[Rfam]
RNA: tRNA
RNA sequence: GGCGCUAUAGCCAAGUGGUUACGGCGACAGAUUCGAAUUGAGUUAGUGUCCACCAACUCGUUGUUAUCUGUUCCUCUUUGAGGGCGCAGGUUCAAAUCCUGCUGGCGUCG
Number, nucleotide and partner (000 for none) at each position: 001g109002g108003c107004g106005c105006u104007a103008u000009a000010g025011c024012c023013a000014a000015g000016u000017g000018g000019u000020u000021a000022c000023g012024g011025c010026g000027a071028c070029a069030g068031a067032u000033u000034c000035g000036a000037a000038u000039u000040g000041a000042g000043u000044u000045a000046g000047u000048g000049u000050c000051c000052a000053c000054c000055a000056a000057c000058u000059c000060g000061u000062u000063g000064u000065u000066a000067u031068c030069u029070g028071u027072u000073c000074c000075u000076c000077u000078u000079u000080g000081a000082g000083g000084g000085c000086g102087c101088a100089g099090g098091u000092u000093c000094a000095a000096a000097u000098c090099c089100u088101g087102c086103u007104g006105g005106c004107g003108u002109c001110g000